[Rfam]
RNA sequence: CCGGCAGUACCAAAGUGCUCACAGUGCAGGUAGGUUUUGCAUUACUCUACUGUAGUGUGGGCACUUCCAGUACUCUUGG
Numbered sequence: 001c002c003g004g005c006a007g008u009a010c011c012a013a014a015g016u017g018c019u020c021a022c023a024g025u026g027c028a029g030g031u032a033g034g035u036u037u038u039g040c041a042u043u044a045c046u047c048u049a050c051u052g053u054a055g056u057g058u059g060g061g062c063a064c065u066u067c068c069a070g071u072a073c074u075c076u077u078g079g
Base pairs, nucleotide, nucleotide: 004076006074007073009071010070013066014065015064016063017062018061019060020059021058022057023056025054026053027052029051030050031049032048033047
Rfam assigns this 79-nucleotide sequence from Sus scrofa to the family "mir-17 microRNA precursor family".
Rfam describes the family as follows. This family represents the microRNA (miRNA) precursor mir-17, family, which includes mir-20, mir-91, and mir-103. miRNAs are transcribed as ~70nt precursors (modelled here) and subsequently processed by the Dicer enzyme to give a ~22nt product. In this case the mature sequence comes from the 3' arm of the precursor. The extents of the hairpin precursors are not generally known and are estimated based on hairpin prediction.
Its family is annotated with miRNA-mediated post-transcriptional gene silencing and RISC complex in the Gene Ontology.
On this family, see Liu et al., J Mol Biol 2025: "Structural Features Within Precursor microRNA-20a Regulate Dicer-TRBP Processing".